RNA sequence: UUGUUGCCCAGUUCAAGUAAUCCAGGAUAGGCUGUUCAUAUUCUGUGUGGCCUAUUCUUGAUUACUUGCAUUAGGAGACAG
Numbered sequence: 001u002u003g004u005u006g007c008c009c010a011g012u013u014c015a016a017g018u019a020a021u022c023c024a025g026g027a028u029a030g031g032c033u034g035u036u037c038a039u040a041u042u043c044u045g046u047g048u049g050g051c052c053u054a055u056u057c058u059u060g061a062u063u064a065c066u067u068g069c070a071u072u073a074g075g076a077g078a079c080a081g
Stems, first nucleotide, its partner, number of pairs: 002080004007075002010072003014068009024058010
RNA: mir-26 microRNA precursor family
Organism: Hymenochirus boettgeri